[Rfam]
RNA sequence: UCCUCGAAACGGCAACUUGUCUCGAAAGAGCAAGACGCAAAUUAACGAGUCUAACCCUUUAUAGGCAUGAUGGUCGUUAAUACCGAA
Numbered sequence: 001u002c003c004u005c006g007a008a009a010c011g012g013c014a015a016c017u018u019g020u021c022u023c024g025a026a027a028g029a030g031c032a033a034g035a036c037g038c039a040a041a042u043u044a045a046c047g048a049g050u051c052u053a054a055c056c057c058u059u060u061a062u063a064g065g066c067a068u069g070a071u072g073g074u075c076g077u078u079a080a081u082a083c084c085g086a087a
Base pairs, nucleotide, nucleotide: 012038013037017033018032019031020030022029023028041081042080043079044078046076047075048074049071050070051069056065057064058063